[Rfam]
RNA sequence: UGCUGCGGUGGGUCGAGCGGUCCCCUCAAAGAAACACGAGGGUGAAAGAACCCGACCAAACCCACCCCCUCCCUCCCGCACGCAGCGCAAACUCACCCACUCGGGUGAACAUCACCAACUCGGCUGGAUUCGGGACAGGUUGCCGGGCUUACGCUCGCCGCAGCACCACCGCAGAUAUGCCCCAGACAUACGACGGCCCUCGCAGGGACUGGCAUCCCAUUGCGAGGGCCUGACCACCUAGGAAGCCGACCUUCCCG
Number, nucleotide and partner (000 for none) at each position: 001u000002g000003c000004u000005g000006c000007g238008g237009u236010g235011g000012g000013u000014c000015g000016a000017g079018c078019g077020g000021u000022c000023c000024c000025c000026u000027c000028a000029a000030a000031g000032a000033a000034a000035c000036a000037c000038g000039a000040g000041g000042g000043u000044g000045a000046a000047a000048g000049a000050a000051c000052c000053c000054g000055a000056c000057c000058a000059a000060a000061c000062c000063c000064a000065c000066c000067c000068c000069c000070u000071c000072c000073c000074u000075c000076c000077c019078g018079c017080a000081c000082g000083c000084a000085g000086c000087g000088c000089a000090a000091a000092c000093u108094c107095a106096c105097c104098c103099a000100c000101u000102c000103g098104g097105g096106u095107g094108a093109a000110c000111a000112u000113c000114a000115c000116c000117a000118a000119c000120u000121c000122g000123g159124c000125u157126g156127g155128a000129u000130u000131c000132g000133g000134g000135a000136c000137a000138g000139g000140u000141u000142g000143c000144c000145g000146g000147g000148c000149u000150u000151a000152c000153g000154c000155u127156c126157g125158c000159c123160g000161c000162a000163g000164c000165a000166c000167c000168a000169c000170c000171g000172c000173a000174g000175a000176u000177a000178u000179g000180c000181c000182c000183c000184a000185g000186a000187c000188a000189u000190a000191c000192g000193a000194c000195g230196g229197c228198c227199c226200u000201c224202g223203c222204a000205g218206g217207g216208a215209c000210u000211g000212g000213c000214a000215u208216c207217c206218c205219a000220u000221u000222g203223c202224g201225a000226g199227g198228g197229c196230c195231u000232g000233a000234c000235c010236a009237c008238c007239u000240a000241g255242g254243a253244a252245g251246c000247c000248g000249a000250c000251c245252u244253u243254c242255c241256c000257g000
Rfam assigns this 257-nucleotide RNA sequence from Streptomyces caeruleatus to the family "Streptomyces sRNA 4677".
A reference for the family is Hindra et al. (2014), "Complex intra-operonic dynamics mediated by a small RNA in Streptomyces coelicolor", PLoS One.
From the family's description: Located in the intergenic region between anti-sigma factor SCO4677 gene and a putative regulatory protein gene SCO4676. scr4677 expression requires the SCO4677 activity and scr4677 sRNA itself seem to affect the levels of the SCO4676-associated transcripts.
The pairing is the family consensus, mapped onto this sequence.
By type it is a small RNA.